[Rfam]
RNA sequence: UCUGCCCACGUUGGGGAGUAGCCGCUGCCGGCUGGCAGGGCCGUGUCAACAUCCUUGCGCAGUUGCGCAUGGCACGGUCGGCGGUCCGAGUGACCGGAUUGGCGAGACCAAACGUUCCCGGACGGCCUCGAUGCAGGCCAUCGCGGGGCGUGUGGAUCGCU
Numbered sequence: 001u002c003u004g005c006c007c008a009c010g011u012u013g014g015g016g017a018g019u020a021g022c023c024g025c026u027g028c029c030g031g032c033u034g035g036c037a038g039g040g041c042c043g044u045g046u047c048a049a050c051a052u053c054c055u056u057g058c059g060c061a062g063u064u065g066c067g068c069a070u071g072g073c074a075c076g077g078u079c080g081g082c083g084g085u086c087c088g089a090g091u092g093a094c095c096g097g098a099u100u101g102g103c104g105a106g107a108c109c110a111a112a113c114g115u116u117c118c119c120g121g122a123c124g125g126c127c128u129c130g131a132u133g134c135a136g137g138c139c140a141u142c143g144c145g146g147g148g149c150g151u152g153u154g155g156a157u158c159g160c161u
Stems, first nucleotide, its partner, number of pairs: 026037003039079010056069005

The record is a 161-nucleotide sequence from Rhodovastum atsumiense, which matches "Manganese Mn2+ riboswitch aptamer (yybP-ykoY)" in Rfam. The pairing is the family consensus, mapped onto this sequence. Rfam links the family to the GO term manganese ion binding. This RNA was originally discovered in E. coli during a large scale screen and was named SraF. The family was later found to exist upstream of related families of protein genes in many bacteria, including the the yybP and ykoK genes in B. subtilis. The specific functions of these proteins are unknown, but this structured RNA element may be involved in their genetic regulation as a riboswitch. Lineage of the source: Bacteria > Pseudomonadati > Pseudomonadota > Alphaproteobacteria > Rhodovastum.